Shown here is a 106-nucleotide sequence from Shewanella amazonensis, a member of the family "TPP riboswitch aptamer (THI element)". A search with the family's covariance model found it, with a score of 71 bits.

[Rfam]
RNA sequence: GGCGGCGCCAAGGGGUGUCUGCCGCAUGCAGACUGAGAUGUCUCAGGACGAACCCUUAGAACCUGAUCCGGCUGAUACCGGCGUAGGAAUGGGCUGAUACUGCAAA
Number, nucleotide and partner (000 for none) at each position: 001g000002g000003c000004g000005g000006c000007g000008c092009c091010a090011a056012g055013g054014g053015g000016u050017g033018u032019c031020u030021g029022c000023c000024g000025c000026a000027u000028g000029c021030a020031g019032a018033c017034u000035g000036a000037g000038a000039u000040g049041u048042c047043u000044c000045a000046g000047g042048a041049c040050g016051a000052a000053c014054c013055c012056u011057u000058a000059g000060a000061a000062c087063c086064u085065g084066a000067u000068c081069c080070g079071g078072c000073u000074g000075a000076u000077a000078c071079c070080g069081g068082c000083g000084u065085a064086g063087g062088a000089a000090u010091g009092g008093g000094c000095u000096g000097a000098u000099a000100c000101u000102g000103c000104a000105a000106a000